[Rfam]
RNA sequence: AAAAGUAGCAGUCAAGAGUGGUGAGAAUCCACUCCGCCGAAAGGGCAAAGGUUCCUUGGCAAUGUUCGUCAGCCGAGGGUUAGCCGAUCCUAAGGCCAUUCCUAACAGGAAAUGGUCGAAAGGGAAGCUGGUUAAUAUUCCAGCGCCUGAGGUGUUCUGCCAUGCAUGUGAGCUUCGGGAUAGGAGGAGCACACCCGUCAGUGUGUUGGUGCAUAUAAGCAGAUGGAGAGUUGUAAUGACGUAAAGUCUGCGAAGAUGUAUCUGUCCCCUUAUGGGGAUUUCUCUAAUUCCUGGAGCCCAUGAAAAGCAUGCAUGGGUCAAGCCCCAGAUCGUACCAAGAACCGACACAGGUGCCCCUGGAUGAGAAGUCCAAGGCGUUU
Numbered sequence: 001a002a003a004a005g006u007a008g009c010a011g012u013c014a015a016g017a018g019u020g021g022u023g024a025g026a027a028u029c030c031a032c033u034c035c036g037c038c039g040a041a042a043g044g045g046c047a048a049a050g051g052u053u054c055c056u057u058g059g060c061a062a063u064g065u066u067c068g069u070c071a072g073c074c075g076a077g078g079g080u081u082a083g084c085c086g087a088u089c090c091u092a093a094g095g096c097c098a099u100u101c102c103u104a105a106c107a108g109g110a111a112a113u114g115g116u117c118g119a120a121a122g123g124g125a126a127g128c129u130g131g132u133u134a135a136u137a138u139u140c141c142a143g144c145g146c147c148u149g150a151g152g153u154g155u156u157c158u159g160c161c162a163u164g165c166a167u168g169u170g171a172g173c174u175u176c177g178g179g180a181u182a183g184g185a186g187g188a189g190c191a192c193a194c195c196c197g198u199c200a201g202u203g204u205g206u207u208g209g210u211g212c213a214u215a216u217a218a219g220c221a222g223a224u225g226g227a228g229a230g231u232u233g234u235a236a237u238g239a240c241g242u243a244a245a246g247u248c249u250g251c252g253a254a255g256a257u258g259u260a261u262c263u264g265u266c267c268c269c270u271u272a273u274g275g276g277g278a279u280u281u282c283u284c285u286a287a288u289u290c291c292u293g294g295a296g297c298c299c300a301u302g303a304a305a306a307g308c309a310u311g312c313a314u315g316g317g318u319c320a321a322g323c324c325c326c327a328g329a330u331c332g333u334a335c336c337a338a339g340a341a342c343c344g345a346c347a348c349a350g351g352u353g354c355c356c357c358u359g360g361a362u363g364a365g366a367a368g369u370c371c372a373a374g375g376c377g378u379u380u
Stems, first nucleotide, its partner, number of pairs: 016034006035377004043356004050335001054078006063071002085332003089123002094117006100110003127144005147328003151324003167309003172297009183285005188207006211259004220250005228242001230240003342351002358372004
This 380-nucleotide part of an RNA from Picrophilus oshimae belongs to the Rfam family "Archaeal large subunit ribosomal RNA". The source organism's lineage runs through Archaea, Methanobacteriati, Thermoplasmatota, Picrophilus and Picrophilus oshimae. Clan: LSU clan.